[Rfam]
RNA: Ribosomal protein L20 leader
RNA sequence: GAGAAAAAGAAGAAGCACCCGCUUCUCACCUGAUUGACGCAUUUAGUGUAGUUGAUAGGGUUACGUGAAACUAAUUUAUUUCGUUUUCGUAGUGUGGGUGUGUUCACCCACACUUUUUUAUAUGC
Numbered sequence: 001g002a003g004a005a006a007a008a009g010a011a012g013a014a015g016c017a018c019c020c021g022c023u024u025c026u027c028a029c030c031u032g033a034u035u036g037a038c039g040c041a042u043u044u045a046g047u048g049u050a051g052u053u054g055a056u057a058g059g060g061u062u063a064c065g066u067g068a069a070a071c072u073a074a075u076u077u078a079u080u081u082c083g084u085u086u087u088c089g090u091a092g093u094g095u096g097g098g099u100g101u102g103u104u105c106a107c108c109c110a111c112a113c114u115u116u117u118u119u120a121u122a123u124g125c
Stems, first nucleotide, its partner, number of pairs: 011026006028061003036053003039049002093112008